[Rfam]
RNA sequence: AUAAAUCUUCAGGGUAGGGUGAAAUCCCCAAUCGGCGGUAUAGUCCGCGAGCGCGCAAGCGCAGGUGCGAGAGCACAGGACUUGGUGAAAUUCCAAGACCGACAGUAAAGUCUGGAUGAAAGAGGAUUUUG
Numbered sequence: 001a002u003a004a005a006u007c008u009u010c011a012g013g014g015u016a017g018g019g020u021g022a023a024a025u026c027c028c029c030a031a032u033c034g035g036c037g038g039u040a041u042a043g044u045c046c047g048c049g050a051g052c053g054c055g056c057a058a059g060c061g062c063a064g065g066u067g068c069g070a071g072a073g074c075a076c077a078g079g080a081c082u083u084g085g086u087g088a089a090a091u092u093c094c095a096a097g098a099c100c101g102a103c104a105g106u107a108a109a110g111u112c113u114g115g116a117u118g119a120a121a122g123a124g125g126a127u128u129u130u131g
Stems, first nucleotide, its partner, number of pairs: 003129008017029003031111002033101002035048004043099002081097005103114003